[Rfam]
RNA sequence: CAUUAAUGGCUCUGUAAGUCACUCUGGAUAAGAGCGUCUGCUAAAUGACUGAAA
Numbered sequence: 001c002a003u004u005a006a007u008g009g010c011u012c013u014g015u016a017a018g019u020c021a022c023u024c025u026g027g028a029u030a031a032g033a034g035c036g037u038c039u040g041c042u043a044a045a046u047g048a049c050u051g052a053a054a
Stems, first nucleotide, its partner, number of pairs: 013043001014041003020036001022034004

The family of this 54-nucleotide sequence from Salvelinus namaycush is "UnaL2 LINE 3' element". From the family's description: The eel long interspersed element (LINE) UnaL2 and its partner short interspersed element (SINE) share a conserved 3' tail containing a stem-loop that is critical for their retrotransposition. Presumably, the first step of retrotransposition is the recognition of their 3' tails by UnaL2-encoded reverse transcriptase. The solution structure of a 17-nucleotide RNA derived from the 3' tail of UnaL2 was determined by NMR. It scores 60 bits against the family's covariance model.